Shown here is a 57-nucleotide RNA, a member of the family "Transposase-1 RNA". The sequence is in the family's curated seed alignment. It is annotated as a small RNA. Pairs were carried over by alignment from the consensus structure, which is taken from published work.

Nucleotides: 057
Stems, first nucleotide, its partner, number of pairs: 007052006018042004025036003
Number, partner (000 for none) and nucleotide at each position: 001000u002000u003000c004000a005000g006000a007052g008051a009050u010049u011048g012047c013000c014000u015000a016000u017000g018042u019041c020040g021039u022000u023000a024000c025036c026035c027034a028000u029000g030000u031000a032000a033000g034027u035026g036025g037000a038000u039021a040020c041019g042018g043000g044000a045000a046000u047012g048011c049010a050009a051008u052007u053000g054000u055000u056000a057000a